[Rfam]
RNA sequence: AAAUCAGAUGAUGAGAUUGGAUUAAAUUUCUCACGACGGUCGUCUGAGACACCUCUAUGUGCGGUGUCUGCCUGAUGCAUUGAUCCAAUUUUUUCUGAUGAUU
Numbered sequence: 001a002a003a004u005c006a007g008a009u010g011a012u013g014a015g016a017u018u019g020g021a022u023u024a025a026a027u028u029u030c031u032c033a034c035g036a037c038g039g040u041c042g043u044c045u046g047a048g049a050c051a052c053c054u055c056u057a058u059g060u061g062c063g064g065u066g067u068c069u070g071c072c073u074g075a076u077g078c079a080u081u082g083a084u085c086c087a088a089u090u091u092u093u094u095c096u097g098a099u100g101a102u103u
Base pairs, nucleotide, nucleotide: 001103002102004100050066051065052064